RNA sequence: UGCAAUGCAUUACUGAGAAUGGGUAGCAGUCACUUUGUACUAUGAGUAACUGCAACAUCUCUCAGUAUUGUAAGGUUC
Numbered sequence: 001u002g003c004a005a006u007g008c009a010u011u012a013c014u015g016a017g018a019a020u021g022g023g024u025a026g027c028a029g030u031c032a033c034u035u036u037g038u039a040c041u042a043u044g045a046g047u048a049a050c051u052g053c054a055a056c057a058u059c060u061c062u063c064a065g066u067a068u069u070g071u072a073a074g075g076u077u078c
Stems, first nucleotide, its partner, number of pairs: 002076002006072004011067008023056002026053005032047004
About this RNA
A member of the RNA family "mir-883 microRNA precursor family" from Mus musculus, 78 nucleotides long. The literature on the family includes a 2010 paper in Mol Hum Reprod by Ahn et al., "MicroRNA transcriptome in the newborn mouse ovaries determined by massive parallel sequencing". Rfam 15.1 lists 10 matches to the family in 8 species.